[Rfam]
RNA sequence: CCAUUGCCGGCGGCGCGCCUCCUGGACUUGUCCAGUUGGUUCACCGUCAGCGCUGGCGGGGGCGACAUAUAUCACAGCGUGUCGCGAGCUCGACCCCGCCUCUUACUCCUUGGCCUACUCCUACUUUGCGUAGGGGUAGGCAUUUUCCUACUCCCCGCUCGGUAGAGCGGCACACACUA
Numbered sequence: 001c002c003a004u005u006g007c008c009g010g011c012g013g014c015g016c017g018c019c020u021c022c023u024g025g026a027c028u029u030g031u032c033c034a035g036u037u038g039g040u041u042c043a044c045c046g047u048c049a050g051c052g053c054u055g056g057c058g059g060g061g062g063c064g065a066c067a068u069a070u071a072u073c074a075c076a077g078c079g080u081g082u083c084g085c086g087a088g089c090u091c092g093a094c095c096c097c098g099c100c101u102c103u104u105a106c107u108c109c110u111u112g113g114c115c116u117a118c119u120c121c122u123a124c125u126u127u128g129c130g131u132a133g134g135g136g137u138a139g140g141c142a143u144u145u146u147c148c149u150a151c152u153c154c155c156c157g158c159u160c161g162g163u164a165g166a167g168c169g170g171c172a173c174a175c176a177c178u179a
Stems, first nucleotide, its partner, number of pairs: 006051002009048005017040003022035005055100007062085006113141012155170003159166001

The record is a 179-nucleotide RNA from Orthohepacivirus hominis, which matches "Hepatitis C virus (HCV) cis-acting replication element (CRE)" in Rfam. Pairs were carried over by alignment from the consensus structure, which was predicted with RNAfold. Rfam's curators put it in the seed alignment.